[Rfam]
This 69-nucleotide RNA from Amycolatopsis jiangsuensis belongs to the Rfam family "ASpks TB sRNA". It is annotated as an antisense RNA. It scores 63 bits against the family's covariance model.
RNA sequence: CUUCACCGAACCCAGCCACAGCGGCUCGGACCGGUUCUGCCCGUAGGUCGCGAGCACUGCCUGCGCUUC
Numbered sequence: 001c002u003u004c005a006c007c008g009a010a011c012c013c014a015g016c017c018a019c020a021g022c023g024g025c026u027c028g029g030a031c032c033g034g035u036u037c038u039g040c041c042c043g044u045a046g047g048u049c050g051c052g053a054g055c056a057c058u059g060c061c062u063g064c065g066c067u068u069c
Stems, first nucleotide, its partner, number of pairs: 014026004027063001032059002037054002041050001043048001